[Rfam]
Annotation
The family of this 88-nucleotide RNA sequence from Paenibacillus rhizosphaerae is "BsrC". The literature on the family includes a 2008 paper in Gene by Saito et al., "Novel small RNA-encoding genes in the intergenic regions of Bacillus subtilis". The 301 nucleotide sequence from Kouji Nakamura has been trimmed to a highly conserved ~85 nucleotide long core to form this family.
RNA sequence: GACUUCCAAAACAACAAAAGCCCUGCCUCUCUUUUGUCCUUGCGGCUCCGAUGACCGCGCCAGCGUGAAUCAGAAAUAGCAUCUUAAA
Numbered sequence: 001g002a003c004u005u006c007c008a009a010a011a012c013a014a015c016a017a018a019a020g021c022c023c024u025g026c027c028u029c030u031c032u033u034u035u036g037u038c039c040u041u042g043c044g045g046c047u048c049c050g051a052u053g054a055c056c057g058c059g060c061c062a063g064c065g066u067g068a069a070u071c072a073g074a075a076a077u078a079g080c081a082u083c084u085u086a087a088a
Stems, first nucleotide, its partner, number of pairs: 034068003039063002041059005047053001